[Rfam]
RNA sequence: GGUAGUAGCAAAAUUCAAACGGGACUUUUGAAGACUGAAGUGGGGAAAGGUUCCACGUCAACAGCAGAUGGACGUGGGUGAGUCGAUCCUAAGCCGCAGCUUAACUGCUUUGCAUUGAGGUACUUUUUGUACUUUGUCGGCGAAAGGGAAUCUGGUUAAAAUUCCAGAACUAGGCAGUGGCAACGGCAACGUCAUCAAUGCGGAGACAUUGGCGCGGGUCCCAGGAGGAGUUUUCUUUUUCUUCUAACAGCCUAUGACCCCGGAAUUGGUUUAUCCGGAGAGGGGGUUUUAUGGCUGGAAGAGCACCGCCCUCGGCAGUGUCUGGUGCGCCCGCGACGAUCCUGGAAAAUCCGCAGCAGCGCCACGCCCAGUCGUACUGACAACCGCAGCAGGUCUCCAAGGUUAACAGCCUCUAGUUGA
Numbered sequence: 001g002g003u004a005g006u007a008g009c010a011a012a013a014u015u016c017a018a019a020c021g022g023g024a025c026u027u028u029u030g031a032a033g034a035c036u037g038a039a040g041u042g043g044g045g046a047a048a049g050g051u052u053c054c055a056c057g058u059c060a061a062c063a064g065c066a067g068a069u070g071g072a073c074g075u076g077g078g079u080g081a082g083u084c085g086a087u088c089c090u091a092a093g094c095c096g097c098a099g100c101u102u103a104a105c106u107g108c109u110u111u112g113c114a115u116u117g118a119g120g121u122a123c124u125u126u127u128u129g130u131a132c133u134u135u136g137u138c139g140g141c142g143a144a145a146g147g148g149a150a151u152c153u154g155g156u157u158a159a160a161a162u163u164c165c166a167g168a169a170c171u172a173g174g175c176a177g178u179g180g181c182a183a184c185g186g187c188a189a190c191g192u193c194a195u196c197a198a199u200g201c202g203g204a205g206a207c208a209u210u211g212g213c214g215c216g217g218g219u220c221c222c223a224g225g226a227g228g229a230g231u232u233u234u235c236u237u238u239u240u241c242u243u244c245u246a247a248c249a250g251c252c253u254a255u256g257a258c259c260c261c262g263g264a265a266u267u268g269g270u271u272u273a274u275c276c277g278g279a280g281a282g283g284g285g286g287u288u289u290u291a292u293g294g295c296u297g298g299a300a301g302a303g304c305a306c307c308g309c310c311c312u313c314g315g316c317a318g319u320g321u322c323u324g325g326u327g328c329g330c331c332c333g334c335g336a337c338g339a340u341c342c343u344g345g346a347a348a349a350u351c352c353g354c355a356g357c358a359g360c361g362c363c364a365c366g367c368c369c370a371g372u373c374g375u376a377c378u379g380a381c382a383a384c385c386g387c388a389g390c391a392g393g394u395c396u397c398c399a400a401g402g403u404u405a406a407c408a409g410c411c412u413c414u415a416g417u418u419g420a
Stems, first nucleotide, its partner, number of pairs: 014032006033418004042398004048378002053077006062070002084374003088147002093141002096110001099108002118134003151168005171370001173368002177365004183192003199355006208340004213335007221325003224244006248297005257287005266278004304320003308316003384393002400412004
A member of the RNA family "Eukaryotic large subunit ribosomal RNA" from Australozyma monospora, 420 nucleotides of a longer RNA. The match comes from Rfam's covariance-model search (2938 bits). On this family, see Yusupov et al., Science 2001: "Crystal structure of the ribosome at 5.5 A resolution".